[Rfam]
RNA sequence: UAGGAAGAGAAGGAGCUCCCUUCAGUCCAAGCAUAGAGAAAGAGGAGAUGGAAAAUUAUCUCCCGCAUCAUUCACACAAUCAACAGUAGUAAAAGCACUUUCUUCUUCUUCAUCUUCUUCUUCUUUUUUACCUGUGUGAUAUAUAUUUUCUACUGAUUGUUCGAGUGAAUGAGUCGGCAGCUAGUUCAACUCCUCUCUAUUUUAUAUCCAUGAGUGGGCUGAAGGAAGCUCUCUCAUACCAUUUC
Numbered sequence: 001u002a003g004g005a006a007g008a009g010a011a012g013g014a015g016c017u018c019c020c021u022u023c024a025g026u027c028c029a030a031g032c033a034u035a036g037a038g039a040a041a042g043a044g045g046a047g048a049u050g051g052a053a054a055a056u057u058a059u060c061u062c063c064c065g066c067a068u069c070a071u072u073c074a075c076a077c078a079a080u081c082a083a084c085a086g087u088a089g090u091a092a093a094a095g096c097a098c099u100u101u102c103u104u105c106u107u108c109u110u111c112a113u114c115u116u117c118u119u120c121u122u123c124u125u126u127u128u129u130a131c132c133u134g135u136g137u138g139a140u141a142u143a144u145a146u147u148u149u150c151u152a153c154u155g156a157u158u159g160u161u162c163g164a165g166u167g168a169a170u171g172a173g174u175c176g177g178c179a180g181c182u183a184g185u186u187c188a189a190c191u192c193c194u195c196u197c198u199a200u201u202u203u204a205u206a207u208c209c210a211u212g213a214g215u216g217g218g219c220u221g222a223a224g225g226a227a228g229c230u231c232u233c234u235c236a237u238a239c240c241a242u243u244u245c
Stems, first nucleotide, its partner, number of pairs: 013231005019225002023221007036208001060180002063177003069171004077163001
Shown here is a 245-nucleotide RNA from Acer saccharum, a member of the family "MIR159 microRNA precursor family". A search with the family's covariance model found it, with a score of 95 bits. Pairs were carried over by alignment from the consensus structure, which was predicted with WAR. The family has 66 seed sequences and 3,649 matches in Rfam 15.1. The literature on the family includes a 2004 paper in Mol Cell by Jones-Rhoades and Bartel, "Computational identification of plant microRNAs and their targets, including a stress-induced miRNA".